[Rfam]
RNA sequence: CAAUAGGGUAGGGGCUUGCCUCAGGAAACUUGGGGUACCUCCCUUGC
Dot-bracket structure: .....(((..(......((((((((...)))))))).)..)))....
RNA: Hepatitis C virus stem-loop I